Purine riboswitch aptamer: a 98-nucleotide sequence from Ilyobacter polytropus.
[Rfam]
RNA sequence: UGUUUAGAUAAAAAUAUUACUCAUAUAAACUGCAAAUACGGUGCAGUGUAUCUACGACUAACCUUAAAUUGGUCUCUAUGAGAGGUGUAAUGACUUAG
Numbered sequence: 001u002g003u004u005u006a007g008a009u010a011a012a013a014a015u016a017u018u019a020c021u022c023a024u025a026u027a028a029a030c031u032g033c034a035a036a037u038a039c040g041g042u043g044c045a046g047u048g049u050a051u052c053u054a055c056g057a058c059u060a061a062c063c064u065u066a067a068a069u070u071g072g073u074c075u076c077u078a079u080g081a082g083a084g085g086u087g088u089a090a091u092g093a094c095u096u097a098g
Stems, first nucleotide, its partner, number of pairs: 018084001020082006029047006056074006
A search with the family's covariance model found it, with a score of 60 bits.
NCBI's taxonomy places the organism under Bacteria, Fusobacteriota, Fusobacteriia, Ilyobacter, Ilyobacter polytropus.